[Rfam]
RNA sequence: AUCCUCGGGAAUCCUCGGGGAUCCUCGGGGAUCCUCGGGGAUCCUCGGGGAUCCUCGGGGAUCCUCGGGGAU
Numbered sequence: 001a002u003c004c005u006c007g008g009g010a011a012u013c014c015u016c017g018g019g020g021a022u023c024c025u026c027g028g029g030g031a032u033c034c035u036c037g038g039g040g041a042u043c044c045u046c047g048g049g050g051a052u053c054c055u056c057g058g059g060g061a062u063c064c065u066c067g068g069g070g071a072u
Base pairs, nucleotide, nucleotide: 001072002071003070004069005068006067007066008065009064011062012061016057017056018055019054020053021052022051023050024049025048026047027046028045029044030043033040034039
The record is a 72-nucleotide RNA from Elachura formosa, which matches "Epstein-Barr virus stable intronic sequence RNA 2" in Rfam. Pairs were carried over by alignment from the consensus structure. A reference for the family is Moss et al. (2014), "RNA families in Epstein-Barr virus", RNA Biol. The family has 2 seed sequences and 171 matches in Rfam 15.1.